[Rfam]
RNA sequence: UGUGAGAGUGAUGAGUUGCACUAAUGAGUUGGGGUGUCUUUGCAGUGGCAUCGACACCUCAAUCCCAGUCAAUAUGAGGACACACCCUGUGCACAGGGGCCAUCUGACUCCAC
Numbered sequence: 001u002g003u004g005a006g007a008g009u010g011a012u013g014a015g016u017u018g019c020a021c022u023a024a025u026g027a028g029u030u031g032g033g034g035u036g037u038c039u040u041u042g043c044a045g046u047g048g049c050a051u052c053g054a055c056a057c058c059u060c061a062a063u064c065c066c067a068g069u070c071a072a073u074a075u076g077a078g079g080a081c082a083c084a085c086c087c088u089g090u091g092c093a094c095a096g097g098g099g100c101c102a103u104c105u106g107a108c109u110c111c112a113c
Base pairs, nucleotide, nucleotide: 006110007109008108025067026066028064029062030061031060032059034057035056036055041050042049043048
RNA: Small nucleolar RNA SNORD67